[Rfam]
RNA sequence: AAUAAUUUAAUAAUAUUCACUCAUAUAAUCGUAGGGAUACGGCCUACAAGUUUCUACCAGAUUACCGUAAAUGAUCUGACUAUGAGUGAGCAAUGGACGUUA
Numbered sequence: 001a002a003u004a005a006u007u008u009a010a011u012a013a014u015a016u017u018c019a020c021u022c023a024u025a026u027a028a029u030c031g032u033a034g035g036g037a038u039a040c041g042g043c044c045u046a047c048a049a050g051u052u053u054c055u056a057c058c059a060g061a062u063u064a065c066c067g068u069a070a071a072u073g074a075u076c077u078g079a080c081u082a083u084g085a086g087u088g089a090g091c092a093a094u095g096g097a098c099g100u101u102a
Stems, first nucleotide, its partner, number of pairs: 018088008029049001031047005058078007